[Rfam]
RNA sequence: CCGUUCUCAACGGGGUGCCGCGAGGCUGAGAUAACACCCGUCGAACCUGAUCCGGUUUAUACCGGCGGAGGGAUUUGAGAUCUGCUGUUUG
Numbered sequence: 001c002c003g004u005u006c007u008c009a010a011c012g013g014g015g016u017g018c019c020g021c022g023a024g025g026c027u028g029a030g031a032u033a034a035c036a037c038c039c040g041u042c043g044a045a046c047c048u049g050a051u052c053c054g055g056u057u058u059a060u061a062c063c064g065g066c067g068g069a070g071g072g073a074u075u076u077g078a079g080a081u082c083u084g085c086u087g088u089u090u091g
Base pairs, nucleotide, nucleotide: 006079007078008077009076010075011040012039013038014037016034017026018025019024046071047070048069052065053064054063055062

Shown here is a 91-nucleotide RNA sequence from Plesiomonas shigelloides, a member of the family "TPP riboswitch aptamer (THI element)". The match comes from Rfam's covariance-model search (73 bits). From the family's description: Vitamin B(1) in its active form thiamin pyrophosphate (TPP) is an essential coenzyme that is synthesised by coupling of pyrimidine and thiazole moieties in bacteria. NCBI's taxonomy places the organism under Bacteria, Pseudomonadati, Enterobacteriaceae, Plesiomonas, Plesiomonas shigelloides.